[Rfam]
RNA sequence: AAAGAUGAUAGAGGCGCGGUACGGAUGAGUAACCGGGUGAGAAGGUAUUCUGUGACCCCGGAUGAAAGGCCAAACCGCCGAAACGGACGCCAGACAUGGCGUUUGGUUGGGACUGGUGAGAAGAUCACCAGGACUCCUGUCUUUGUGACAGAGGAGCUAUCGAUGUG
Numbered sequence: 001a002a003a004g005a006u007g008a009u010a011g012a013g014g015c016g017c018g019g020u021a022c023g024g025a026u027g028a029g030u031a032a033c034c035g036g037g038u039g040a041g042a043a044g045g046u047a048u049u050c051u052g053u054g055a056c057c058c059c060g061g062a063u064g065a066a067a068g069g070c071c072a073a074a075c076c077g078c079c080g081a082a083a084c085g086g087a088c089g090c091c092a093g094a095c096a097u098g099g100c101g102u103u104u105g106g107u108u109g110g111g112a113c114u115g116g117u118g119a120g121a122a123g124a125u126c127a128c129c130a131g132g133a134c135u136c137c138u139g140u141c142u143u144u145g146u147g148a149c150a151g152a153g154g155a156g157c158u159a160u161c162g163a164u165g166u167g
Stems, first nucleotide, its partner, number of pairs: 006162006016078005023071002032063001033061005082108003085104008109135002113131007137151005
Background: A member of the RNA family "Lysine riboswitch aptamer" from Ruminococcaceae bacterium AM28-23LB, 167 nucleotides long. Rfam describes the family as follows. Riboswitches are metabolite binding domains within certain messenger RNAs that serve as precision sensors for their corresponding targets.